[Rfam]
UnaL2 LINE 3' element: a 54-nucleotide RNA sequence from Coregonus sp. 'balchen'. NCBI's taxonomy places the organism under Eukaryota, Bilateria, Vertebrata, Euteleostomi, Coregonus. By type it is a cis-regulatory element.
RNA sequence: AAUGCACUAAACUGUAAGUCGCUCUGGAUAAGAGCAUCUGCUAAAUGACUCAAA
Numbered sequence: 001a002a003u004g005c006a007c008u009a010a011a012c013u014g015u016a017a018g019u020c021g022c023u024c025u026g027g028a029u030a031a032g033a034g035c036a037u038c039u040g041c042u043a044a045a046u047g048a049c050u051c052a053a054a
Stems, first nucleotide, its partner, number of pairs: 013043001014041003021035005
Dot-bracket structure: ............((((....(((((.....)))))...))).)...........